[Rfam]
Nucleotides: 073
Stems, first nucleotide, its partner, number of pairs: 001055008011022003028044004034073006
Number, partner (000 for none) and nucleotide at each position: 001055u002054a003053c004052g005051c006050g007049g008048c009000u010000a011022g012021g013020g014000g015000u016000u017000g018000c019000u020013c021012c022011c023000g024000a025000a026000u027000c028044c029043c030042g031041g032000a033000a034073c035072c036071u037070u038069g039068g040000c041031c042030c043029g044028g045000c046000c047000c048008g049007c050006c051005g052004c053003g054002u055001a056000g057000u058000u059000u060000u061000u062000c063000u064000c065000u066000c067000g068039c069038c070037a071036a072035g073034g